[Rfam]
RNA: Bacteroidales small SRP
RNA sequence: UGCCGUCCGGCGAGCGCACACGACCAGCUCCCGCUGAACUCCCCCAGGGCGGAAACGCAGCAAGGGUAGGUAGGUUGAGCGGUGCGAUGUGUUGCUCGCCUUAUU
Numbered sequence: 001u002g003c004c005g006u007c008c009g010g011c012g013a014g015c016g017c018a019c020a021c022g023a024c025c026a027g028c029u030c031c032c033g034c035u036g037a038a039c040u041c042c043c044c045c046a047g048g049g050c051g052g053a054a055a056c057g058c059a060g061c062a063a064g065g066g067u068a069g070g071u072a073g074g075u076u077g078a079g080c081g082g083u084g085c086g087a088u089g090u091g092u093u094g095c096u097c098g099c100c101u102u103a104u105u
Stems, first nucleotide, its partner, number of pairs: 009100007016092005021086002023083002